Source information:
The family of this 78-nucleotide RNA from Sciurus carolinensis is "Small nucleolar RNA R38". From the family's description: snoR38 is a C/D box small nucleolar RNA conserved across yeast, human, Arabidopsis and rice. It is encoded in the intron of elongation factor-1 gamma in both pombe and cerevisiae. snoR38 guides the methylation of 2'-O-ribose sites in 28S rRNA. The match comes from Rfam's covariance-model search (45 bits). The family's RNA type in Rfam is C/D-box small nucleolar RNA. Taxonomically the source falls in Sciurus (Eukaryota, Eumetazoa, Euteleostomi, Sarcopterygii). For this family Rfam cites "Antisense snoRNAs: a family of nucleolar RNAs with long complementarities to rRNA" (Bachellerie et al., Trends Biochem Sci, 1995).
Nucleotides: 078
Base pairs, nucleotide, nucleotide: 001078002077003076004075005074006073
Number, partner (000 for none) and nucleotide at each position: 001078u002077u003076g004075a005074g006073c007000u008000g009000a010000g011000g012000a013000g014000g015000a016000u017000u018000u019000a020000a021000a022000c023000u024000u025000a026000u027000c028000c029000c030000u031000g032000a033000c034000u035000g036000a037000a038000g039000u040000g041000a042000c043000a044000u045000c046000u047000u048000u049000u050000g051000u052000g053000a054000a055000g056000a057000g058000u059000u060000c061000u062000g063000a064000c065000u066000u067000a068000a069000c070000u071000g072000a073006g074005c075004u076003c077002a078001a